This 62-nucleotide RNA from Pongo abelii belongs to the Rfam family "U7 small nuclear RNA". The literature on the family includes a 1994 paper in Nucleic Acids Res by Spycher et al., "3' end processing of mouse histone pre-mRNA: evidence for additional base-pairing between U7 snRNA and pre-mRNA". Rfam 15.1 lists 10,439 matches to the family in 569 species. The source organism's lineage runs through Eukaryota, Deuterostomia, Tetrapoda, Mammalia and Pongo. Rfam describes the family as follows. Animal histone pre-mRNAs are spliced by a different mechanism than nuclear pre-mRNAs and self-splicing introns. This processing involves the U7 snRNP, which contains only one RNA species: U7. The 5' end of U7 RNA is thought to base-pair to a conserved spacer element downstream of the cleavage site in histone pre-mRNA. This family contains a number of annotated U7 pseudogenes. It scores 62 bits against the family's covariance model.

[Rfam]
RNA sequence: UAGUGUUACAGCUCUUUUAGAAUUUGUCUAGCAGGCCUUCUGGCUUUCGCUGGGACGUCCCC
Numbered sequence: 001u002a003g004u005g006u007u008a009c010a011g012c013u014c015u016u017u018u019a020g021a022a023u024u025u026g027u028c029u030a031g032c033a034g035g036c037c038u039u040c041u042g043g044c045u046u047u048c049g050c051u052g053g054g055a056c057g058u059c060c061c062c
Stems, first nucleotide, its partner, number of pairs: 034059003038055007